[Rfam]
RNA sequence: CCCCCCGAUACUACCCGCAGGUAGACCUCAGCUGAGAUGCUCGGUGAGGUAGAGCGACCGACUGGUUGGUCAGCGGUCGAAAGGCCGCGCCGACCUAUCAAACUCCGAACUUGCCGAGAUCGUAGAAGCUGGGUGCUAGGGUAUAGGGAUAAGCUCUGUACCCGUGAAGGGAACAACCUAGACUAGGGUUAAGGCCCCUAAAUACUGGCUAAGUGCGAUCUAAAGGGGUUCAUGGCCAAAGACAGUGGGGAGGUUGGCUUAGAAGCAGCCAUCCUUUAAAGAGUGCGUAACAGCUCACUCACCGAGGCUAUGUGCCCCGAAGAUGGAAGGGGCUAAAGCCAGUUGCCGAGACCCUAGGGCACCGAAAGGUGAUCCGGUAGGGGGGCGUGCCGCAUGGGCGGAAGCCUCUCCGAGAGGAGGGGUGGACCGUGUGGUAUCGCGGAU
Number, nucleotide and partner (000 for none) at each position: 001c385002c384003c383004c382005c381006c380007g000008a000009u000010a000011c024012u023013a022014c021015c020016c000017g000018c000019a000020g015021g014022u013023a012024g011025a000026c135027c133028u132029c131030a130031g129032c128033u000034g000035a000036g121037a120038u119039g000040c118041u117042c116043g115044g114045u113046g112047a111048g000049g000050u000051a000052g106053a104054g103055c000056g000057a000058c000059c000060g099061a098062c000063u000064g095065g094066u093067u092068g091069g090070u000071c000072a000073g088074c087075g086076g085077u084078c083079g000080a000081a000082a000083g078084g077085c076086c075087g074088c073089g000090c069091c068092g067093a066094c065095c064096u000097a000098u061099c060100a000101a000102a000103c054104u053105c000106c052107g000108a000109a000110c000111u047112u046113g045114c044115c043116g042117a041118g040119a038120u037121c036122g000123u000124a000125g000126a000127a000128g032129c031130u030131g029132g028133g027134u000135g026136c000137u000138a000139g163140g162141g161142u160143a159144u158145a157146g156147g155148g000149a000150u000151a000152a000153g000154c000155u147156c146157u145158g144159u143160a142161c141162c140163c139164g000165u000166g000167a000168a179169g178170g177171g000172a000173a000174c000175a000176a000177c170178c169179u168180a000181g000182a000183c357184u356185a355186g354187g353188g352189u351190u000191a000192a000193g347194g346195c345196c000197c000198c000199u000200a000201a000202a344203u000204a343205c342206u341207g340208g339209c338210u000211a000212a000213g000214u000215g000216c000217g000218a000219u000220c000221u000222a000223a000224a000225g318226g317227g316228g315229u314230u000231c312232a311233u310234g309235g308236c307237c306238a000239a000240a000241g000242a000243c000244a000245g302246u301247g300248g299249g298250g000251a275252g274253g273254u000255u000256g270257g269258c268259u000260u000261a000262g000263a000264a000265g000266c000267a000268g258269c257270c256271a000272u000273c253274c252275u251276u280277u000278a000279a000280a276281g296282a000283g000284u000285g294286c293287g000288u000289a000290a000291c000292a000293g286294c285295u000296c281297a000298c249299u248300c247301a246302c245303c000304g000305a000306g237307g236308c235309u234310a233311u232312g231313u000314g229315c228316c227317c226318c225319g000320a000321a000322g000323a000324u000325g000326g000327a000328a000329g000330g000331g000332g000333c000334u000335a000336a000337a000338g209339c208340c207341a206342g205343u204344u202345g195346c194347c193348g000349a000350g000351a189352c188353c187354c186355u185356a184357g183358g375359g374360c371361a370362c369363c368364g000365a000366a000367a000368g363369g362370u361371g360372a000373u000374c359375c358376g000377g000378u000379a000380g006381g005382g004383g003384g002385g001386c439387g000388u436389g435390c434391c433392g432393c431394a430395u429396g428397g427398g000399c000400g000401g000402a000403a000404g423405c422406c421407u420408c419409u418410c417411c416412g000413a000414g000415a000416g411417g410418a409419g408420g407421g406422g405423u404424g000425g000426a000427c397428c396429g395430u394431g393432u392433g391434g390435u389436a388437u000438c000439g386440c000441g000442g000443a000444u000
Description: The family of this 444-nucleotide part of an RNA from Thermogymnomonas acidicola is "Archaeal large subunit ribosomal RNA". A search with the family's covariance model found it, with a score of 2826 bits. The family's consensus secondary structure is taken from published work.